[Rfam]
RNA sequence: UCCAGUGAUGGCACAUCUUUGAGACCUGAGAUUUCUUCCUUGAUGAAAACCAUAAGCAUAAUCCCUGAGGGC
Numbered sequence: 001u002c003c004a005g006u007g008a009u010g011g012c013a014c015a016u017c018u019u020u021g022a023g024a025c026c027u028g029a030g031a032u033u034u035c036u037u038c039c040u041u042g043a044u045g046a047a048a049a050c051c052a053u054a055a056g057c058a059u060a061a062u063c064c065c066u067g068a069g070g071g072c
Stems, first nucleotide, its partner, number of pairs: 001071003029041001030038002